[Rfam]
RNA sequence: GCCGGCGAUGGGGAUGGAGUACCCCCGAUAACCGCCGUACCGGCUGAUGACUCCUGUCAUGCG
Numbered sequence: 001g002c003c004g005g006c007g008a009u010g011g012g013g014a015u016g017g018a019g020u021a022c023c024c025c026c027g028a029u030a031a032c033c034g035c036c037g038u039a040c041c042g043g044c045u046g047a048u049g050a051c052u053c054c055u056g057u058c059a060u061g062c063g
Base pairs, nucleotide, nucleotide: 010026011025012024013023016054017053018052019051020050034044035043036042
Shown here is a 63-nucleotide RNA from Sphingomonas sp. CL5.1, a member of the family "Fluoride riboswitch aptamer (crcB RNA motif)". It scores 51 bits against the family's covariance model. Taxonomically the source falls in Sphingomonas (Bacteria, Pseudomonadota, Alphaproteobacteria, Sphingomonadaceae).